This 51-nucleotide RNA from Agrobacterium albertimagni belongs to the Rfam family "sul1 RNA". Taxonomically the source falls in Agrobacterium albertimagni (Bacteria, Pseudomonadati, Pseudomonadota, Alphaproteobacteria).
RNA sequence: AACGGACCCGUUCACGGGUGGCUUCUCCGGGCGCCUAUCCCCCGGCAACCC
Numbered sequence: 001a002a003c004g005g006a007c008c009c010g011u012u013c014a015c016g017g018g019u020g021g022c023u024u025c026u027c028c029g030g031g032c033g034c035c036u037a038u039c040c041c042c043c044g045g046c047a048a049c050c051c
Base pairs, nucleotide, nucleotide: 006019007018008017009016010015027045028044029043030042031041